[Rfam]
Nucleotides: 057
Base pairs, nucleotide, nucleotide: 001055002054003053004052005051006050007049010027011026013023022039029042031048032047033046034045036044037043
Number, partner (000 for none) and nucleotide at each position: 001055g002054c003053c004052c005051u006050a007049g008000a009000u010027c011026c012000a013023c014000a015000u016000g017000a018000u019000u020000u021000g022039a023013g024000u025000a026011g027010g028000u029042u030000a031048c032047u033046u034045g035000u036044u037043u038000u039022u040000g041000a042029a043037a044036g045034c046033a047032a048031g049007c050006u051005a052004g053003g054002g055001u056000a057000u

Shown here is a 57-nucleotide RNA from Ligilactobacillus salivarius, a member of the family "salivarius-1 RNA".
The sequence is in the family's curated seed alignment.
Pairs were carried over by alignment from the consensus structure, which is taken from published work.
Lineage of the source: Bacteria > Bacillati > Bacillota > Lactobacillales > Ligilactobacillus salivarius.
It is annotated as a small RNA.